[Rfam]
RNA sequence: ACUCUUUAGCGUUUAGGCUGUUGAAAUUUUAAGCCUUGUCCGGCGAUUCGCCAGACACAAACUUAUUGAGCACA
Numbered sequence: 001a002c003u004c005u006u007u008a009g010c011g012u013u014u015a016g017g018c019u020g021u022u023g024a025a026a027u028u029u030u031a032a033g034c035c036u037u038g039u040c041c042g043g044c045g046a047u048u049c050g051c052c053a054g055a056c057a058c059a060a061a062c063u064u065a066u067u068g069a070g071c072a073c074a
Stems, first nucleotide, its partner, number of pairs: 005070005037057004042052004
RNA: Retron msr RNA